[Rfam]
RNA sequence: CCCCUUUGCAGAACCCAUUCGGCGUUCUAUAUAGGUCGUGCGGGCCGCAAGGUCCGCUAUGGCGAUAAAUGGACGUCGAAAUAAGUCUUUCGGACCCGGGGGCGGUACCCGGCGCCUCCACCAAAGCCCGCAUUGUCGGCGGGUUUCGGCGGGGGCGAAAUAGGUUCGACGGGGGACCCAAAGGACGAUCUUUUGCCCGGCAUGAUACCGCCGUUAUCGGGUCAACCUUAUAGUUGCCAACGACAACUAUGCUCCGGUGGCCCUCGCCGCGUAAUGCGGUGAUGGUACUGGGAAUCAAGUCCUGAGGGUUUGCACCUGAAGGCGGGGUCCGGAGGCGCCUGGCAACAGAAGCCUCCACU
Numbered sequence: 001c002c003c004c005u006u007u008g009c010a011g012a013a014c015c016c017a018u019u020c021g022g023c024g025u026u027c028u029a030u031a032u033a034g035g036u037c038g039u040g041c042g043g044g045c046c047g048c049a050a051g052g053u054c055c056g057c058u059a060u061g062g063c064g065a066u067a068a069a070u071g072g073a074c075g076u077c078g079a080a081a082u083a084a085g086u087c088u089u090u091c092g093g094a095c096c097c098g099g100g101g102g103c104g105g106u107a108c109c110c111g112g113c114g115c116c117u118c119c120a121c122c123a124a125a126g127c128c129c130g131c132a133u134u135g136u137c138g139g140c141g142g143g144u145u146u147c148g149g150c151g152g153g154g155g156c157g158a159a160a161u162a163g164g165u166u167c168g169a170c171g172g173g174g175g176a177c178c179c180a181a182a183g184g185a186c187g188a189u190c191u192u193u194u195g196c197c198c199g200g201c202a203u204g205a206u207a208c209c210g211c212c213g214u215u216a217u218c219g220g221g222u223c224a225a226c227c228u229u230a231u232a233g234u235u236g237c238c239a240a241c242g243a244c245a246a247c248u249a250u251g252c253u254c255c256g257g258u259g260g261c262c263c264u265c266g267c268c269g270c271g272u273a274a275u276g277c278g279g280u281g282a283u284g285g286u287a288c289u290g291g292g293a294a295u296c297a298a299g300u301c302c303u304g305a306g307g308g309u310u311u312g313c314a315c316c317u318g319a320a321g322g323c324g325g326g327g328u329c330c331g332g333a334g335g336c337g338c339c340u341g342g343c344a345a346c347a348g349a350a351g352c353c354u355c356c357a358c359u
Stems, first nucleotide, its partner, number of pairs: 040057007061197005071190002074187004086176003090172003096112005113157007198213004203224003208220002325340004331356006

Shown here is a 359-nucleotide RNA sequence from Roseiarcus fermentans, a member of the family "Alphaproteobacteria transfer-messenger RNA".
For this family Rfam cites "Phylogenetic analysis of tmRNA secondary structure" (Williams and Bartel, RNA, 1996).